[Rfam]
RNA sequence: UAUGCCCCUAGAGGCGUACAGAUGGGGCUGCUGUGCCUCAUUUGUGUCAUAUGGUGGCAUAGAGCAAAAGGCUAUGUCUACGCUCGGUGUUCUCAGUCCAUGAACACUCAGAAUGAUUAGUAGCCUGACAAUG
Dot-bracket structure: ..((((.(((.......((((....................))))......))).))))..........(((......((..((...(((((.........)))))...))..)).......)))........
RNA: Small nucleolar RNA SNORA43